[Rfam]
Rfam assigns this 267-nucleotide RNA sequence to the family "Bacterial large signal recognition particle RNA".

RNA sequence: AUGCACUAGGUGGGGCGUUAGCGGUGCCUUGUAACCUGCAAUCCGCUAUAGCAGGGCUUAUUACCAAAGGGAGGUUUUCAAAGGGUGUGGCAGUCAUUUGUAAGUGGUGUUGACAAGUGGGUCCUUACGCAAUAAAGCUUUAUGAACGGGUCAGGUCUUGACGGAAGCAGCCAUAAGUAAAAUACUUUAUGUGCCGUGAGAUUGCUUAUUUAGAGCUAACUGCAAAUGUAACGUGCAUUCUUUGUUAAACGACCUUUGGGUGUGCUU
Numbered sequence: 001a002u003g004c005a006c007u008a009g010g011u012g013g014g015g016c017g018u019u020a021g022c023g024g025u026g027c028c029u030u031g032u033a034a035c036c037u038g039c040a041a042u043c044c045g046c047u048a049u050a051g052c053a054g055g056g057c058u059u060a061u062u063a064c065c066a067a068a069g070g071g072a073g074g075u076u077u078u079c080a081a082a083g084g085g086u087g088u089g090g091c092a093g094u095c096a097u098u099u100g101u102a103a104g105u106g107g108u109g110u111u112g113a114c115a116a117g118u119g120g121g122u123c124c125u126u127a128c129g130c131a132a133u134a135a136a137g138c139u140u141u142a143u144g145a146a147c148g149g150g151u152c153a154g155g156u157c158u159u160g161a162c163g164g165a166a167g168c169a170g171c172c173a174u175a176a177g178u179a180a181a182a183u184a185c186u187u188u189a190u191g192u193g194c195c196g197u198g199a200g201a202u203u204g205c206u207u208a209u210u211u212a213g214a215g216c217u218a219a220c221u222g223c224a225a226a227u228g229u230a231a232c233g234u235g236c237a238u239u240c241u242u243u244g245u246u247a248a249a250c251g252a253c254c255u256u257u258g259g260g261u262g263u264g265c266u267u
Base pairs, nucleotide, nucleotide: 001267003265004264005263006262008059009058010057011056012030013029014028015027016026017025018024019023035055036054037053038052039051064260065259067257068256069255070254073250075248076247079244080243081242082241083240084239085238086237087236088235093229096227097226098225099224100223101222104220105219106217107216108215115211116210117209118208119207120206121205122204124200125199126198127197128196129195130191131190133189134188135187136186137185139181140180141179142178143177149172150171151170156165157164158163